[Rfam]
A member of the RNA family "SAM (S-adenosyl methionine) riboswitch aptamer" from Paraoerskovia marina, 116 nucleotides long. Rfam describes the family as follows. SAM-IV is a mRNA element that regulates gene expression via direct sensing of S-adenosylmethionine (SAM or AdoMet). SAM-IV riboswitches share conserved nucleotide positions with the previously described SAM-I riboswitches sequence analysis and molecular recognition experiments suggest that SAM-I and SAM-IV riboswitches share similar ligand binding sites, but have different scaffolds. The family is grouped with related families in Rfam's "SAM clan". Taxonomically the source falls in Paraoerskovia (Bacteria, Bacillati, Actinomycetota, Actinomycetes).
RNA sequence: GGUCAUGAGUGCCAGCGCGAAACCCCGGUUUGCUGGCCGGCAACCCUCCUCCCACGGUGGGGUGCCCCGGGUGACGACCCGGCCGUUCACCAGGUGGUGCGCGGCAAGCGUGGGAC
Dot-bracket structure: ((((....(.((((((....((......)).)))))))(((..(((.((......))..))).))).........))))..(((((.((((....)))).)))))...........